RNA: mir-8517 microRNA precursor family
Organism: Plutella xylostella
RNA sequence: UUAUAGGGCGCUUUAGCUAUUGAACUGUUUUGUCCCUCUCUGCCAAAGAUCAAAUUGUUCUCUGUCAGAGCGUUAGAGAAUAGUUCAAUAGCUAAAGCAUCCUAUAAC
Numbered sequence: 001u002u003a004u005a006g007g008g009c010g011c012u013u014u015a016g017c018u019a020u021u022g023a024a025c026u027g028u029u030u031u032g033u034c035c036c037u038c039u040c041u042g043c044c045a046a047a048g049a050u051c052a053a054a055u056u057g058u059u060c061u062c063u064g065u066c067a068g069a070g071c072g073u074u075a076g077a078g079a080a081u082a083g084u085u086c087a088a089u090a091g092c093u094a095a096a097g098c099a100u101c102c103u104a105u106a107a108c
Stems, first nucleotide, its partner, number of pairs: 001107006011097018029069004034064001049059001051057002